[Rfam]
RNA sequence: UUCAUGGGGAUUGCGAUCUCCCCACGAGGCGACAUGCCCAAGCAUCGCAUCCGGAUAUCUUUUUUACGGAUGUGCCAUG
Numbered sequence: 001u002u003c004a005u006g007g008g009g010a011u012u013g014c015g016a017u018c019u020c021c022c023c024a025c026g027a028g029g030c031g032a033c034a035u036g037c038c039c040a041a042g043c044a045u046c047g048c049a050u051c052c053g054g055a056u057a058u059c060u061u062u063u064u065u066a067c068g069g070a071u072g073u074g075c076c077a078u079g
Stems, first nucleotide, its partner, number of pairs: 005024006047073006
The record is a 79-nucleotide RNA sequence from Microvirga thermotolerans, which matches "chrB-a RNA" in Rfam. NCBI's taxonomy places the organism under Bacteria, Pseudomonadota, Alphaproteobacteria, Methylobacteriaceae, Microvirga.